[Rfam]
RNA sequence: GGCUGACUGUUUUCUUUUGGUGUUUAGAGUCUCUUCUAUUUCUAGCACCAUUUGAAAUCGGUUACAA
Number, nucleotide and partner (000 for none) at each position: 001g000002g000003c000004u064005g062006a000007c061008u060009g059010u000011u057012u056013u055014c054015u000016u000017u000018u050019g049020g048021u047022g046023u000024u000025u044026a043027g042028a041029g000030u000031c000032u000033c000034u000035u000036c000037u000038a000039u000040u000041u028042c027043u026044a025045g000046c022047a021048c020049c019050a018051u000052u000053u000054g014055a013056a012057a011058u000059c009060g008061g007062u005063u000064a004065c000066a000067a000
Shown here is a 67-nucleotide sequence from Salmo trutta, a member of the family "mir-29 microRNA precursor family". About the family: This family represents the microRNA (miRNA) precursors mir-29. It scores 62 bits against the family's covariance model.